[Rfam]
RNA: Streptococcus sRNA SpF59 (ldcC RNA)
RNA sequence: UGACCACAUCCUAUCGGAAGUUAAGGGCAACGGUGUGCCGGGUCAAAUGCCGA
Dot-bracket structure: (((((((.(((....))).))...................)))))........